Annotation:
The family of this 80-nucleotide sequence from Piaya cayana is "mir-1791 microRNA precursor family". Taxonomically the source falls in Piaya (Eukaryota, Metazoa, Sauria, Aves). The base pairs follow the family's consensus structure, which was predicted with RNAalifold. Its family is annotated with miRNA-mediated post-transcriptional gene silencing and RISC complex in the Gene Ontology.

[Rfam]
RNA sequence: UGCACCAUGUUGGGCUGCAUCAGUCAUGCCACGUUACGAAACCUAACGCGAUGCGACUGAUGCAGGCUGACACGGCGUGU
Number, nucleotide and partner (000 for none) at each position: 001u000002g080003c079004a078005c077006c074007a000008u072009g071010u070011u069012g068013g067014g000015c065016u064017g063018c062019a061020u060021c059022a058023g057024u056025c055026a000027u053028g052029c000030c050031a000032c048033g047034u046035u045036a044037c000038g000039a000040a000041a000042c000043c000044u036045a035046a034047c033048g032049c000050g030051a000052u028053g027054c000055g025056a024057c023058u022059g021060a020061u019062g018063c017064a016065g015066g000067c013068u012069g011070a010071c009072a008073c000074g006075g000076c000077g005078u004079g003080u002